Notes
A member of the RNA family "miR-430 microRNA precursor family" from Anabas testudineus, 70 nucleotides long.

RNA sequence: AGCAUUGCUCUGACAAUAGCACUGACUUGAGCUCUGCAAGCAGUAAGUGCUAAUUGUUAGGGGAAUGUGA
Dot-bracket structure: ...(((.((((.(((((((((((.(((..............))).)))))).))))).)))).)))....
For this family Rfam cites "MicroRNAs regulate brain morphogenesis in zebrafish" (Giraldez et al., Science, 2005). Rfam 15.1 lists 24,817 matches to the family in 105 species. The base pairs follow the family's consensus structure, which was predicted with RNAalifold. Rfam links the family to the GO terms miRNA-mediated post-transcriptional gene silencing and RISC complex. Its Rfam clan is "mir-290 clan".